[Rfam]
RNA sequence: CAUCAUCACUAGGGGUGCUAUUGUGAAUAGCUGAGACGGAAAUACAUUUCUGAACUCUUUGAACCGGAUCUGGUUUGUACCAGCGUAGGGAAGUGUGGCAAACGUUUU
Numbered sequence: 001c002a003u004c005a006u007c008a009c010u011a012g013g014g015g016u017g018c019u020a021u022u023g024u025g026a027a028u029a030g031c032u033g034a035g036a037c038g039g040a041a042a043u044a045c046a047u048u049u050c051u052g053a054a055c056u057c058u059u060u061g062a063a064c065c066g067g068a069u070c071u072g073g074u075u076u077g078u079a080c081c082a083g084c085g086u087a088g089g090g091a092a093g094u095g096u097g098g099c100a101a102a103c104g105u106u107u108u
Stems, first nucleotide, its partner, number of pairs: 007095004011058004016052001017031005038051005064089002067086001070083004
Rfam assigns this 108-nucleotide RNA sequence from Priestia filamentosa to the family "TPP riboswitch aptamer (THI element)".